[Rfam]
RNA sequence: GCACUCGUCAUUGGCGAAUAGCCGCUCUUCGCCUGUAGAGGCUUGCGUCAACACACUUGGCCCUCACGGCCAUGGCUCUAGCAGCUUCAAGCCUGGCGAGACAUUUGAUUGUGCGUCUUGCUGGACUGGCCUGAGGC
Numbered sequence: 001g002c003a004c005u006c007g008u009c010a011u012u013g014g015c016g017a018a019u020a021g022c023c024g025c026u027c028u029u030c031g032c033c034u035g036u037a038g039a040g041g042c043u044u045g046c047g048u049c050a051a052c053a054c055a056c057u058u059g060g061c062c063c064u065c066a067c068g069g070c071c072a073u074g075g076c077u078c079u080a081g082c083a084g085c086u087u088c089a090a091g092c093c094u095g096g097c098g099a100g101a102c103a104u105u106u107g108a109u110u111g112u113g114c115g116u117c118u119u120g121c122u123g124g125a126c127u128g129g130c131c132u133g134a135g136g137c
Base pairs, nucleotide, nucleotide: 026039027038028037041082042081043080045078047076048075049074050073058072059071060070061069062068084137085136086135087134088133089132